RNA sequence: UACAGAAAAAGGCAAACCAUGCUGAAAGGCAGGGACGCAAAGUCACAGGUCUACGGUAAUAGAUACUAUGGCGGCUGGGCUGCCUGA
Numbered sequence: 001u002a003c004a005g006a007a008a009a010a011g012g013c014a015a016a017c018c019a020u021g022c023u024g025a026a027a028g029g030c031a032g033g034g035a036c037g038c039a040a041a042g043u044c045a046c047a048g049g050u051c052u053a054c055g056g057u058a059a060u061a062g063a064u065a066c067u068a069u070g071g072c073g074g075c076u077g078g079g080c081u082g083c084c085u086g087a
Stems, first nucleotide, its partner, number of pairs: 012038002017033002020031004041081004046077003049072003056066003
Rfam assigns this 87-nucleotide RNA from Peribacillus deserti to the family "c-di-GMP-I riboswitch aptamer". The source organism's lineage runs through Bacteria, Bacillati, Bacillota, Caryophanales and Peribacillus. The family's consensus secondary structure is taken from published work.